[Rfam]
The record is a 108-nucleotide RNA from Arthrobacter ulcerisalmonis, which matches "TPP riboswitch aptamer (THI element)" in Rfam.
RNA sequence: UGGAGACCACACGGGUGCCCCUGCAAGGGCUGAGAUCGGGCUGACGCAGCCUGCGACCGUCGAACCUGUCCGGGUAAUGCCGGCGAAGGAAGUGAGUAUUCGGUGACU
Dot-bracket structure: .......(((((((..((((......))))......(((((((...)))))))...))))....(((..((((......))))...)))..)))..............
Numbered sequence: 001u002g003g004a005g006a007c008c009a010c011a012c013g014g015g016u017g018c019c020c021c022u023g024c025a026a027g028g029g030c031u032g033a034g035a036u037c038g039g040g041c042u043g044a045c046g047c048a049g050c051c052u053g054c055g056a057c058c059g060u061c062g063a064a065c066c067u068g069u070c071c072g073g074g075u076a077a078u079g080c081c082g083g084c085g086a087a088g089g090a091a092g093u094g095a096g097u098a099u100u101c102g103g104u105g106a107c108u
Stems, first nucleotide, its partner, number of pairs: 008094003011060004017030004037053007065089003070083004